[Rfam]
RNA: Small Cajal body specific RNA 16
RNA sequence: CUGGUCUGGGGAAGGGCUCCUGUGUGGUUGGACCCGCCCAGCGGUGGGUGCAGCCCCAUACCAGGCAGCCCCAUCCUGACCUACAGUAAAUCAAUCCCAGGAGUUGCCUGGGUUUGAAUUUGCAGUAACAGGUGUGAACAUUCUAGCAGCAGUUUGAUGAUCAUGUAUGAUACUGCACACAGUA
Numbered sequence: 001c002u003g004g005u006c007u008g009g010g011g012a013a014g015g016g017c018u019c020c021u022g023u024g025u026g027g028u029u030g031g032a033c034c035c036g037c038c039c040a041g042c043g044g045u046g047g048g049u050g051c052a053g054c055c056c057c058a059u060a061c062c063a064g065g066c067a068g069c070c071c072c073a074u075c076c077u078g079a080c081c082u083a084c085a086g087u088a089a090a091u092c093a094a095u096c097c098c099a100g101g102a103g104u105u106g107c108c109u110g111g112g113u114u115u116g117a118a119u120u121u122g123c124a125g126u127a128a129c130a131g132g133u134g135u136g137a138a139c140a141u142u143c144u145a146g147c148a149g150c151a152g153u154u155u156g157a158u159g160a161u162c163a164u165g166u167a168u169g170a171u172a173c174u175g176c177a178c179a180c181a182g183u184a
Stems, first nucleotide, its partner, number of pairs: 003081004008076003015070004019065004024061002026055005032049003096112003100107001119179001121177007129169002135163003139159004145154003